[Rfam]
RNA sequence: GGAGGUGCGUUUCAGCUGGUGCUGGGCCCGGACUUCAAAUCCGGUGUGGGUGGGUAACGCCCGUCCAGGUGGGUUCGAUUCCCACACGCCUCC
Number, nucleotide and partner (000 for none) at each position: 001g093002g092003a091004g090005g089006u088007g087008c000009g085010u000011u026012u025013c024014a023015g022016c021017u000018g000019g000020u000021g016022c015023u014024g013025g012026g011027c000028c044029c043030g042031g041032a040033c000034u000035u000036c000037a000038a000039a000040u032041c031042c030043g029044g028045u000046g000047u067048g066049g065050g064051u063052g000053g000054g000055u000056a000057a000058c000059g000060c000061c000062c000063g051064u050065c049066c048067a047068g000069g000070u084071g083072g082073g081074u000075u000076c000077g000078a000079u000080u000081c073082c072083c071084a070085c009086a000087c007088g006089c005090c004091u003092c002093c001

The family of this 93-nucleotide sequence from Cloacibacillus porcorum is "Selenocysteine transfer RNA". Its family is annotated with triplet codon-amino acid adaptor activity in the Gene Ontology.